[Rfam]
RNA sequence: AUUGGACUCAACCUUUUAAAGCACUUUUUUUGUAAAAAUAAAAAAGUGCUUUAAAAGGUUGAGUUUAUC
Numbered sequence: 001a002u003u004g005g006a007c008u009c010a011a012c013c014u015u016u017u018a019a020a021g022c023a024c025u026u027u028u029u030u031u032g033u034a035a036a037a038a039u040a041a042a043a044a045a046g047u048g049c050u051u052u053a054a055a056a057g058g059u060u061g062a063g064u065u066u067a068u069c
Base pairs, nucleotide, nucleotide: 004066005065006064007063008062009061010060011059012058015055016054017053018052019051020050021049022048023047024046025045027043028042029041
This 69-nucleotide RNA from Austrofundulus limnaeus belongs to the Rfam family "mir-290 microRNA precursor family". It scores 51 bits against the family's covariance model. NCBI's taxonomy places the organism under Eukaryota, Ovalentaria, Cyprinodontiformes, Rivulidae, Austrofundulus.